Shown here is a 230-nucleotide part of an RNA from Citrifermentans bemidjiense, a member of the family "Bacterial large subunit ribosomal RNA".
Lineage of the source: Bacteria > Thermodesulfobacteriota > Desulfuromonadia > Geobacteraceae > Citrifermentans bemidjiense.

RNA sequence: GAGUUACCCUCAGCAGCGAGGUUAAGUUCAUAGAACGGAGCCGCAGCGAAAGCGAGUCUUAAUAGGGCGAAUUAGUUGCUGGGGGUAGACCCGAAACCGGGUGAUCUAUCCAUGUCCAGGGUGAAAGGAAGGUAACACUUCGUGGAGGCCCGAACCCACUGGCGUUGAAAAGCCAGGGGAUGAGGUGUGGAUAGGAGUGAAAGGCUAAUCAAACUCGGAGAUAGCUGGUU
Numbered sequence: 001g002a003g004u005u006a007c008c009c010u011c012a013g014c015a016g017c018g019a020g021g022u023u024a025a026g027u028u029c030a031u032a033g034a035a036c037g038g039a040g041c042c043g044c045a046g047c048g049a050a051a052g053c054g055a056g057u058c059u060u061a062a063u064a065g066g067g068c069g070a071a072u073u074a075g076u077u078g079c080u081g082g083g084g085g086u087a088g089a090c091c092c093g094a095a096a097c098c099g100g101g102u103g104a105u106c107u108a109u110c111c112a113u114g115u116c117c118a119g120g121g122u123g124a125a126a127g128g129a130a131g132g133u134a135a136c137a138c139u140u141c142g143u144g145g146a147g148g149c150c151c152g153a154a155c156c157c158a159c160u161g162g163c164g165u166u167g168a169a170a171a172g173c174c175a176g177g178g179g180a181u182g183a184g185g186u187g188u189g190g191a192u193a194g195g196a197g198u199g200a201a202a203g204g205c206u207a208a209u210c211a212a213a214c215u216c217g218g219a220g221a222u223a224g225c226u227g228g229u230u
Stems, first nucleotide, its partner, number of pairs: 005087013020042004026036003046053002056068004090228002093225001097218006106194011117182001119151004126143001128141004155179003159176005196206003
Dot-bracket structure: ....(((((((((((((..((((..(((.....)))..))))...((....))..((((.....))))......)))))))))))))..((.(...((((((...((((((((((((.((((...(.((((......)))).)....))))...(((.(((((........))))))))..).))))))))))).(((.....)))......))))))......).))..